[Rfam]
RNA: Potassium channel RNA editing signal
Nucleotides: 114
Base pairs, nucleotide, nucleotide: 001114002113004111005110007108008107009106010105011104013102014101015100018097019096021095022094037077038076040074049063050062051061
Number, partner (000 for none) and nucleotide at each position: 001114g002113u003000c004111g005110g006000u007108u008107a009106c010105g011104g012000c013102g014101a015100c016000a017000u018097g019096c020000g021095a022094c023000c024000c025000g026000u027000u028000u029000g030000c031000g032000u033000u034000u035000g036000g037077g038076g039000a040074a041000a042000a043000u044000u045000u046000g047000u048000c049063g050062g051061c052000a053000g054000u055000u056000u057000a058000u059000g060000c061051g062050c063049u064000a065000u066000u067000g068000c069000c070000g071000g072000u073000g074040u075000g076038u077037u078000g079000a080000c081000a082000a083000u084000c085000g086000c087000a088000c089000u090000u091000c092000c093000g094022g095021u096019g097018c098000c099000g100015g101014u102013u103000a104011u105010c106009g107008u108007g109000u110005c111004c112000a113002a114001c